Rfam assigns this 107-nucleotide RNA from Yersinia ruckeri to the family "Yersinia sRNA 224". The literature on the family includes a 2015 paper in PLoS Genet by Nuss et al., "Transcriptomic profiling of Yersinia pseudotuberculosis reveals reprogramming of the Crp regulon by temperature and uncovers Crp as a master regulator of small RNAs". Lineage of the source: Bacteria > Pseudomonadati > Pseudomonadota > Gammaproteobacteria > Yersinia.
[Rfam]
RNA sequence: GGGGUUAAUGACAAAGUGCUCGCUGCGGUGAAAACCGGCAGAUCGUCAAGACGCCGUGAAUAUGUCCUUGUCGGCUCGUUCCGCGCCAUCCCUGGCGCGGACGCUUG
Numbered sequence: 001g002g003g004g005u006u007a008a009u010g011a012c013a014a015a016g017u018g019c020u021c022g023c024u025g026c027g028g029u030g031a032a033a034a035c036c037g038g039c040a041g042a043u044c045g046u047c048a049a050g051a052c053g054c055c056g057u058g059a060a061u062a063u064g065u066c067c068u069u070g071u072c073g074g075c076u077c078g079u080u081c082c083g084c085g086c087c088a089u090c091c092c093u094g095g096c097g098c099g100g101a102c103g104c105u106u107g
Stems, first nucleotide, its partner, number of pairs: 014106005020028003030077002041066003045063002051057002081100008
Dot-bracket structure: .............(((((.(((...))).((.........(((.((....((...))....))))).........))...((((((((....)))))))).))))).